FMN riboswitch aptamer (RFN element): a 204-nucleotide RNA sequence from Paenibacillus antarcticus. The RFN element is a highly conserved domain that is found frequently in the 5'-untranslated regions of prokaryotic mRNAs that encode for flavin mononucleotide (FMN) biosynthesis and transport proteins. Rfam links the family to the GO term FMN binding.
RNA sequence: AUGGAUCUUCGGGGUAAGGUGAAAUUCCUGACCGGCGGUGAGAGUUCAUUCUUACGAUAGAUUGUUAAGCCAAGCUUGAUUGGGUUUGGCAAUCCAUCAUAAAUGAACUUAUAGCCCGCGACUCGUCUUUCAUGAAAUGAUGAAGGCGACUGACUUGGUGUGAUUCCAAGGCCGACGGUAAAGUCCGGAUGGGAGAAGAUCAAA
Numbered sequence: 001a002u003g004g005a006u007c008u009u010c011g012g013g014g015u016a017a018g019g020u021g022a023a024a025u026u027c028c029u030g031a032c033c034g035g036c037g038g039u040g041a042g043a044g045u046u047c048a049u050u051c052u053u054a055c056g057a058u059a060g061a062u063u064g065u066u067a068a069g070c071c072a073a074g075c076u077u078g079a080u081u082g083g084g085u086u087u088g089g090c091a092a093u094c095c096a097u098c099a100u101a102a103a104u105g106a107a108c109u110u111a112u113a114g115c116c117c118g119c120g121a122c123u124c125g126u127c128u129u130u131c132a133u134g135a136a137a138u139g140a141u142g143a144a145g146g147c148g149a150c151u152g153a154c155u156u157g158g159u160g161u162g163a164u165u166c167c168a169a170g171g172c173c174g175a176c177g178g179u180a181a182a183g184u185c186c187g188g189a190u191g192g193g194a195g196a197a198g199a200u201c202a203a204a
Stems, first nucleotide, its partner, number of pairs: 004201007017029003031184002033174002035119004123149005154170005176187003